Shown here is a 92-nucleotide sequence from Thermodesulfatator indicus, a member of the family "Selenocysteine transfer RNA". Rfam 15.1 lists 4,211 matches to the family in 3,344 species.
[Rfam]
RNA sequence: GGAAGCGCCAGGGGCCUGGUGGCCCCCCCGGGCUUCAAACCCGGUGCACCGUCGGAGACGGCGGUGGGUGGGUUCGAUUCCCAUGCGCUUCC
Number, nucleotide and partner (000 for none) at each position: 001g092002g091003a090004a089005g088006c087007g086008c085009c000010a000011g026012g025013g024014g023015c022016c021017u000018g000019g000020u000021g016022g015023c014024c013025c012026c011027c000028c044029c043030g042031g041032g040033c000034u000035u000036c000037a000038a000039a000040c032041c031042c030043g029044g028045u000046g000047c066048a065049c064050c063051g062052u000053c000054g000055g000056a000057g000058a000059c000060g000061g000062c051063g050064g049065u048066g047067g000068g000069u083070g082071g081072g080073u000074u000075c000076g000077a000078u000079u000080c072081c071082c070083a069084u000085g008086c007087g006088c005089u004090u003091c002092c001

The family's consensus secondary structure is taken from published work.